Shown here is a 103-nucleotide sequence from Actinidia chinensis, a member of the family "Small nucleolar RNA R64/Z200 family". The match comes from Rfam's covariance-model search (54 bits). By type it is a C/D-box small nucleolar RNA. Gene Ontology terms of the family: nucleolus and RNA processing. A reference for the family is Galardi et al. (2002), "Purified box C/D snoRNPs are able to reproduce site-specific 2'-O-methylation of target RNA in vitro", Mol Cell Biol.

RNA sequence: UUUCUGCUCAUGCACAAUUCACAUGCACAAUUCACAUGUCAGACUUCAGUGAUUUUGUAGAAAAAUCUAUGAGAAGAAAAAUUCAUAGUUUUCUGAGCAGUGG
Numbered sequence: 001u002u003u004c005u006g007c008u009c010a011u012g013c014a015c016a017a018u019u020c021a022c023a024u025g026c027a028c029a030a031u032u033c034a035c036a037u038g039u040c041a042g043a044c045u046u047c048a049g050u051g052a053u054u055u056u057g058u059a060g061a062a063a064a065a066u067c068u069a070u071g072a073g074a075a076g077a078a079a080a081a082u083u084c085a086u087a088g089u090u091u092u093c094u095g096a097g098c099a100g101u102g103g
Stems, first nucleotide, its partner, number of pairs: 001103002004100004051067006